[Rfam]
The record is a 196-nucleotide RNA from Klebsiella phage KPP5665-2, which matches "Gammaproteobacterial sRNA STnc100" in Rfam. By type it is a small RNA. Taxonomically the source falls in Caudoviricetes (Viruses, Duplodnaviria, Heunggongvirae, Uroviricota). The base pairs follow the family's consensus structure, which was predicted with CMfinder. It scores 108 bits against the family's covariance model. Rfam 15.1 lists 137 matches to the family in 112 species.
RNA sequence: CCAGAAAGACUGAAUGUUAAAUUUCUGGUGUGGUGAAUCCCCCUAUGCGGAGGGGCAUUGCCAGUCUGAUAUGUUUUUUUGCGCAUUGCGAGUCGUCUGUGGACUGGCGGCGACUUACCGGGAGGCACCCGGCACCACACCUAAUAAAAAAUGAUGAUAGCUGUAAGGCCCACUUCGGUGGGCUUUUUCUUUGGGC
Numbered sequence: 001c002c003a004g005a006a007a008g009a010c011u012g013a014a015u016g017u018u019a020a021a022u023u024u025c026u027g028g029u030g031u032g033g034u035g036a037a038u039c040c041c042c043c044u045a046u047g048c049g050g051a052g053g054g055g056c057a058u059u060g061c062c063a064g065u066c067u068g069a070u071a072u073g074u075u076u077u078u079u080u081g082c083g084c085a086u087u088g089c090g091a092g093u094c095g096u097c098u099g100u101g102g103a104c105u106g107g108c109g110g111c112g113a114c115u116u117a118c119c120g121g122g123a124g125g126c127a128c129c130c131g132g133c134a135c136c137a138c139a140c141c142u143a144a145u146a147a148a149a150a151a152u153g154a155u156g157a158u159a160g161c162u163g164u165a166a167g168g169c170c171c172a173c174u175u176c177g178g179u180g181g182g183c184u185u186u187u188u189c190u191u192u193g194g195g196c
Stems, first nucleotide, its partner, number of pairs: 015146001028140008040055005063079002083089002090116004097110003118132005156196001158194001165186008